[Rfam]
RNA sequence: AAAGUGUGAGGCUUUCUCUUCCCGGUUCUUCCCGGAGUCGGGAAAAGCUGGGUUGAGAGGGAGAAAAAAAAAAAAA
Number, nucleotide and partner (000 for none) at each position: 001a000002a000003a000004g000005u000006g000007u000008g000009a000010g000011g000012c000013u000014u059015u058016c057017u056018c055019u000020u000021c052022c051023c050024g049025g048026u000027u000028c000029u044030u043031c042032c041033c040034g039035g000036a000037g000038u000039c034040g033041g032042g031043a030044a029045a000046a000047g000048c025049u024050g023051g022052g021053u000054u000055g018056a017057g016058a015059g014060g000061g000062a000063g000064a000065a000066a000067a000068a000069a000070a000071a000072a000073a000074a000075a000076a000

Record summary
Shown here is a 76-nucleotide RNA from Propithecus coquereli, a member of the family "mir-320 microRNA precursor family". The source organism's lineage runs through Eukaryota, Bilateria, Deuterostomia, Strepsirrhini and Propithecus. A reference for the family is Berezikov et al. (2006), "Many novel mammalian microRNA candidates identified by extensive cloning and RAKE analysis", Genome Res. The base pairs follow the family's consensus structure, which was predicted with RNAalifold.